RNA sequence: CCCUUAGAGCGUUAUACCAAACAAAAGUAGUUAGUUAAUUUAUUUUAACGACAAAAUUGGACGCAUUGAAUAGGGAA
Dot-bracket structure: ((((....(((((........(((.....(((.(((((......))))))))....)))))))).......))))..

Rfam assigns this 77-nucleotide RNA to the family "RAGATH-18 RNA".
Actinobacteria, Firmicutes, Fusobacteria, Thermotogae (1 example).